Annotation
This 134-nucleotide RNA from Lathyrus oleraceus belongs to the Rfam family "small nucleolar RNA snoR127". Lineage of the source: Eukaryota > Gunneridae > rosids > Hologalegina > Lathyrus. The family has 3 seed sequences and 273 matches in Rfam 15.1.
RNA sequence: CUGGAAUGAUGUGAAUUAGCCAAAUCAGACAAUAAUGUGCUCCGUGACGCAACCAACUUCGUUUGUUUGGAUCAUGUUGAAGUGCGUUUCUCUGAUGAUAAACAAAGAGAUUGGUUUUUCUAUUCCUGACCAGA
Numbered sequence: 001c002u003g004g005a006a007u008g009a010u011g012u013g014a015a016u017u018a019g020c021c022a023a024a025u026c027a028g029a030c031a032a033u034a035a036u037g038u039g040c041u042c043c044g045u046g047a048c049g050c051a052a053c054c055a056a057c058u059u060c061g062u063u064u065g066u067u068u069g070g071a072u073c074a075u076g077u078u079g080a081a082g083u084g085c086g087u088u089u090c091u092c093u094g095a096u097g098a099u100a101a102a103c104a105a106a107g108a109g110a111u112u113g114g115u116u117u118u119u120c121u122a123u124u125c126c127u128g129a130c131c132a133g134a
Stems, first nucleotide, its partner, number of pairs: 001133004